A member of the RNA family "Small nucleolar RNA SNORD56" from Erinaceus europaeus, 71 nucleotides long.
A reference for the family is Galardi et al. (2002), "Purified box C/D snoRNPs are able to reproduce site-specific 2'-O-methylation of target RNA in vitro", Mol Cell Biol.
The family's consensus secondary structure was predicted with PFOLD.
Rfam classes the family as a C/D-box small nucleolar RNA.
Taxonomically the source falls in Erinaceus (Eukaryota, Deuterostomia, Dipnotetrapodomorpha, Eulipotyphla).
RNA sequence: CUACAAUGAUGUCAGUAUUUUUCAUCAAUAGCAGUUCACCUGGUGAGUGUUAAUACCUUGGGUCUGGGUGA
Numbered sequence: 001c002u003a004c005a006a007u008g009a010u011g012u013c014a015g016u017a018u019u020u021u022u023c024a025u026c027a028a029u030a031g032c033a034g035u036u037c038a039c040c041u042g043g044u045g046a047g048u049g050u051u052a053a054u055a056c057c058u059u060g061g062g063u064c065u066g067g068g069u070g071a
Stems, first nucleotide, its partner, number of pairs: 002070003008026004